[Rfam]
RNA sequence: UGUAUUCUUAUUGUAUUCGAGUGUAUUCACGGCGUGAAAUAGGGGAUUACACUGCUUUUAAAACGGAAAGUGAAUCAAUUAACAUAAUAGACUUCU
Numbered sequence: 001u002g003u004a005u006u007c008u009u010a011u012u013g014u015a016u017u018c019g020a021g022u023g024u025a026u027u028c029a030c031g032g033c034g035u036g037a038a039a040u041a042g043g044g045g046a047u048u049a050c051a052c053u054g055c056u057u058u059u060a061a062a063a064c065g066g067a068a069a070g071u072g073a074a075u076c077a078a079u080u081a082a083c084a085u086a087a088u089a090g091a092c093u094u095c096u
Base pairs, nucleotide, nucleotide: 002095004093008090009089010088011087012086013085014084016082017081019080020079022077023076025075026074027073028072029071030070033065034064035063036058037057038056040054041053042052